The family of this 87-nucleotide RNA from Panicum miliaceum is "small nucleolar RNA snoR114". It scores 54 bits against the family's covariance model. The family's consensus secondary structure was predicted with RNAalifold. Rfam 15.1 lists 1,645 matches to the family in 183 species. It is annotated as a C/D-box small nucleolar RNA. Rfam links the family to the GO terms nucleolus and RNA processing. NCBI's taxonomy places the organism under Eukaryota, Euphyllophyta, commelinids, Poales, Panicum sect. Panicum. On this family, see Chen and Wu, Nucleic Acids Res 2009: "Mining small RNA sequencing data: a new approach to identify small nucleolar RNAs in Arabidopsis".

RNA sequence: GAGCAAUGAUUAAACAUGUGCUAAUGUGACUGGUUGGGUCCGUCACAGCUCACUGAUCUCUUGAUUAGCUACAGCACACAUGAGCUC
Numbered sequence: 001g002a003g004c005a006a007u008g009a010u011u012a013a014a015c016a017u018g019u020g021c022u023a024a025u026g027u028g029a030c031u032g033g034u035u036g037g038g039u040c041c042g043u044c045a046c047a048g049c050u051c052a053c054u055g056a057u058c059u060c061u062u063g064a065u066u067a068g069c070u071a072c073a074g075c076a077c078a079c080a081u082g083a084g085c086u087c
Base pairs, nucleotide, nucleotide: 001087002086003085004084